[Rfam]
A member of the RNA family "Small nucleolar RNA SNORA77" from Salvator merianae, 132 nucleotides long. ACA63 (SNORA77) is a member of the H/ACA class of snoRNAs that guide the sites of modification of uridines to pseudouridines. This snoRNA was identified by computational screening and its expression in mouse experimentally verified by Northern blot and primer extension analysis. ACA63 is proposed to guide the pseudouridylation of 18S rRNA U814. The family's consensus secondary structure was predicted with RNAalifold. The family's RNA type in Rfam is H/ACA-box small nucleolar RNA. Lineage of the source: Eukaryota > Teleostomi > Episquamata > Laterata > Salvator.

RNA sequence: GCAGACUCACUCUGUGCUUGGCUGCACUCUUCAGUCAUGGCGCUUUUUAGGUCUGCUAGAGUAUUGAUCCAGGAGGUUGUAAACACUUACCUACCUGUGUAAGUCUGUUUCAUUGGUUCUUGGAACAUCGUU
Numbered sequence: 001g002c003a004g005a006c007u008c009a010c011u012c013u014g015u016g017c018u019u020g021g022c023u024g025c026a027c028u029c030u031u032c033a034g035u036c037a038u039g040g041c042g043c044u045u046u047u048u049a050g051g052u053c054u055g056c057u058a059g060a061g062u063a064u065u066g067a068u069c070c071a072g073g074a075g076g077u078u079g080u081a082a083a084c085a086c087u088u089a090c091c092u093a094c095c096u097g098u099g100u101a102a103g104u105c106u107g108u109u110u111c112a113u114u115g116g117u118u119c120u121u122g123g124a125a126c127a128u129c130g131u132u
Stems, first nucleotide, its partner, number of pairs: 001056006014043005019037002022034003068123002071120004076114001078112002081109001084107002088103001